[Rfam]
RNA sequence: GUUCGUGCUGAAGGCCUGCUUCCUAGGCUACACACGGAGGACUAGUUCCUUGUUAGCGCCUAGGGGAAAGUCCCCGGACCUGGGGCAGAGAGUGCCACGCGCCCGUGCGCGUAGACUUACCCCGCUUCUCACGACUAAGCCCGCCAAGAAGCGAUCCUCCUGCCCUCGGGGUGGGGAAGCCGAGCGGCGUGUUGCGGGGGUGUCAUCCGUCAGCUGCUACAGUUACGCAGGCAGUGCGCCUCCACGCGCACCAACCUCACGGGGCUCAUUCUCAGCACGGC
Numbered sequence: 001g002u003u004c005g006u007g008c009u010g011a012a013g014g015c016c017u018g019c020u021u022c023c024u025a026g027g028c029u030a031c032a033c034a035c036g037g038a039g040g041a042c043u044a045g046u047u048c049c050u051u052g053u054u055a056g057c058g059c060c061u062a063g064g065g066g067a068a069a070g071u072c073c074c075c076g077g078a079c080c081u082g083g084g085g086c087a088g089a090g091a092g093u094g095c096c097a098c099g100c101g102c103c104c105g106u107g108c109g110c111g112u113a114g115a116c117u118u119a120c121c122c123c124g125c126u127u128c129u130c131a132c133g134a135c136u137a138a139g140c141c142c143g144c145c146a147a148g149a150a151g152c153g154a155u156c157c158u159c160c161u162g163c164c165c166u167c168g169g170g171g172u173g174g175g176g177a178a179g180c181c182g183a184g185c186g187g188c189g190u191g192u193u194g195c196g197g198g199g200g201u202g203u204c205a206u207c208c209g210u211c212a213g214c215u216g217c218u219a220c221a222g223u224u225a226c227g228c229a230g231g232c233a234g235u236g237c238g239c240c241u242c243c244a245c246g247c248g249c250a251c252c253a254a255c256c257u258c259a260c261g262g263g264g265c266u267c268a269u270u271c272u273c274a275g276c277a278c279g280g281c
Stems, first nucleotide, its partner, number of pairs: 003280009014232006022064007037051005069266002072264004084096004097112006114204003120199006130191003141187004170180001172178001234251006
Record summary:
A member of the RNA family "RNase MRP" from Cervus hanglu, 281 nucleotides long. Its family is annotated with ribonuclease MRP activity, rRNA processing and ribonuclease MRP complex in the Gene Ontology. A search with the family's covariance model found it, with a score of 221 bits. Clan: RNaseP clan.